[Rfam]
RNA sequence: UAUCUACAUUAAGAGUUGGGGCGACGCCCAACGCCAACCUGCCGCUCCGGGCAAGGUGGUACUUCUUCGGAAGGAUGUGGCCAGCCGGCAAAGAUACGGACCCAG
Dot-bracket structure: .....(((((....((((((......))))))(((..((((((..[[[[))).))).))).............))))).(((....))).......]]]].....
Numbered sequence: 001u002a003u004c005u006a007c008a009u010u011a012a013g014a015g016u017u018g019g020g021g022c023g024a025c026g027c028c029c030a031a032c033g034c035c036a037a038c039c040u041g042c043c044g045c046u047c048c049g050g051g052c053a054a055g056g057u058g059g060u061a062c063u064u065c066u067u068c069g070g071a072a073g074g075a076u077g078u079g080g081c082c083a084g085c086c087g088g089c090a091a092a093g094a095u096a097c098g099g100a101c102c103c104a105g
Stems, first nucleotide, its partner, number of pairs: 006078005015032006033060003038056003041052003046100004080089003
The family of this 105-nucleotide sequence from Falsochrobactrum ovis is "SAM-I/IV (S-adenosyl methionine) riboswitch aptamer". Rfam 15.1 lists 567 matches to the family in 508 species. Its Rfam clan is "SAM clan". A reference for the family is Weinberg et al. (2008), "The aptamer core of SAM-IV riboswitches mimics the ligand-binding site of SAM-I riboswitches", RNA.